Glycine riboswitch aptamer: a 98-nucleotide RNA from Spongiibacter nanhainus. Taxonomically the source falls in Spongiibacter (Bacteria, Gammaproteobacteria, Cellvibrionales, Spongiibacteraceae).
RNA sequence: AUCACGCCGACUGGAGAGAGGCUGCUCAAGGCAGUCCGCCGAAGGGGCAAGCAGACAUCGUCUGUAAACUCUCAGGCAUCGAGGACAGGGGGAGAGGC
Number, nucleotide and partner (000 for none) at each position: 001a000002u000003c000004a000005c000006g000007c092008c091009g000010a000011c088012u087013g086014g000015a000016g000017a000018g000019a000020g036021g035022c034023u033024g000025c000026u000027c000028a000029a000030g000031g000032c000033a023034g022035u021036c020037c000038g077039c076040c075041g073042a072043a000044g000045g071046g070047g069048c000049a000050a000051g065052c064053a063054g062055a061056c000057a000058u000059c000060g000061u055062c054063u053064g052065u051066a000067a000068a000069c047070u046071c045072u042073c041074a000075g040076g039077c038078a000079u000080c000081g000082a000083g000084g000085a000086c013087a012088g011089g000090g000091g008092g007093a000094g000095a000096g000097g000098c000
A reference for the family is Mandal et al. (2004), "A glycine-dependent riboswitch that uses cooperative binding to control gene expression", Science.